[Rfam]
RNA sequence: GGACGAAACUCUGGAGAGACUCGAAAGAGCACCGAAGGAGCAAGUGAGUAUAUUAUUACUCGCGAAACUCUCAGGUAAAAGGACAGAGGCGCUUUA
Numbered sequence: 001g002g003a004c005g006a007a008a009c010u011c012u013g014g015a016g017a018g019a020c021u022c023g024a025a026a027g028a029g030c031a032c033c034g035a036a037g038g039a040g041c042a043a044g045u046g047a048g049u050a051u052a053u054u055a056u057u058a059c060u061c062g063c064g065a066a067a068c069u070c071u072c073a074g075g076u077a078a079a080a081g082g083a084c085a086g087a088g089g090c091g092c093u094u095u096a
Stems, first nucleotide, its partner, number of pairs: 009088005020029003031076003034072002038070003044063007
The family of this 96-nucleotide RNA sequence from Clostridium acetireducens is "Glycine riboswitch aptamer". NCBI's taxonomy places the organism under Bacteria, Bacillati, Clostridia, Eubacteriales, Clostridium acetireducens.